This 77-nucleotide sequence from Xanthomonas albilineans belongs to the Rfam family "Xanthomonas sRNA sX9".
For this family Rfam cites "Genome-wide transcriptome analysis of the plant pathogen Xanthomonas identifies sRNAs with putative virulence functions" (Schmidtke et al., Nucleic Acids Res, 2011).
Taxonomically the source falls in Xanthomonas albilineans (Bacteria, Pseudomonadati, Gammaproteobacteria, Xanthomonas).
By type it is a small RNA.
Rfam 15.1 lists 309 matches to the family in 52 species.
RNA sequence: AUGCACCCCCUUGUACACUGCGGUCUCUGCAAGCUGUCCGUGACCACCCGACAGCAACCCGCAACGUUUUGUUAGCC
Number, nucleotide and partner (000 for none) at each position: 001a000002u017003g016004c000005a014006c013007c000008c000009c000010c000011u000012u000013g006014u005015a000016c003017a002018c000019u000020g000021c036022g035023g034024u033025c000026u031027c000028u000029g000030c000031a026032a000033g024034c023035u022036g021037u000038c000039c000040g000041u000042g000043a000044c000045c000046a000047c000048c075049c000050g073051a072052c071053a070054g069055c000056a000057a000058c000059c000060c000061g000062c000063a000064a000065c000066g000067u000068u000069u054070u053071g052072u051073u050074a000075g048076c000077c000